[Rfam]
RNA: THF-II riboswitch (folE RNA)
Organism: Mesorhizobium loti
RNA sequence: GGCGUGGUCCGUUCAACUCGUUCCUCGAAAGAGGAACUACGGGAGACGCC
Numbered sequence: 001g002g003c004g005u006g007g008u009c010c011g012u013u014c015a016a017c018u019c020g021u022u023c024c025u026c027g028a029a030a031g032a033g034g035a036a037c038u039a040c041g042g043g044a045g046a047c048g049c050c
Base pairs, nucleotide, nucleotide: 009042010041011040012039020037021036022035023034024033025032026031